[Rfam]
The record is a 116-nucleotide sequence from Panicum hallii, which matches "Small nucleolar RNA Z278" in Rfam. Rfam 15.1 lists 1,130 matches to the family in 214 species. From the family's description: snoZ278 is a C/D box small nucleolar RNA. Its methylation guide targets have not been reported. The family's RNA type in Rfam is C/D-box small nucleolar RNA. Taxonomically the source falls in Panicum hallii (Eukaryota, Euphyllophyta, Spermatophyta, Panicoideae). The base pairs follow the family's consensus structure, which was predicted with PFOLD. A reference for the family is Chen et al. (2003), "The high diversity of snoRNAs in plants: identification and comparative study of 120 snoRNA genes from Oryza sativa", Nucleic Acids Res.

RNA sequence: GCCAUUGAUUGAGUCAUCCACUAUCAGGAGACGGAAUCUGUUUUAAGGCCCUGUUUAUCAGGGUGAACCUACUUGGAGUUGCUGCACUUGUAAAAGAAUGUCACCAAUUCUGAGGU
Number, nucleotide and partner (000 for none) at each position: 001g116002c115003c114004a000005u000006u000007g000008a000009u000010u000011g000012a000013g000014u000015c000016a000017u000018c000019c000020a000021c000022u000023a000024u000025c000026a000027g000028g000029a000030g000031a000032c000033g000034g000035a000036a000037u000038c000039u000040g000041u000042u000043u000044u000045a000046a000047g000048g000049c063050c062051c061052u060053g059054u000055u000056u000057a000058u000059c053060a052061g051062g050063g049064u000065g000066a000067a000068c000069c000070u000071a000072c000073u000074u000075g000076g000077a000078g000079u000080u000081g000082c000083u000084g000085c000086a000087c000088u000089u000090g000091u000092a000093a000094a000095a000096g000097a000098a000099u000100g000101u000102c000103a000104c000105c000106a000107a000108u000109u000110c000111u000112g000113a000114g003115g002116u001